[Rfam]
RNA sequence: AUAAUAAUAAGGCAAAUCAAUUGAAAAUUGGGACGCAAAGCCACGAGUCUAAGGUAAAGUUAUUUACUAAGAUCGUCGGGUUGCAUUA
Dot-bracket structure: ...........((...((((((...))))))...))..((((.((((((....((((......))))...)))..)))))))......
The record is an 88-nucleotide RNA sequence from Paraliobacillus ryukyuensis, which matches "c-di-GMP-I riboswitch aptamer" in Rfam. Pairs were carried over by alignment from the consensus structure, which is taken from published work. It scores 73 bits against the family's covariance model.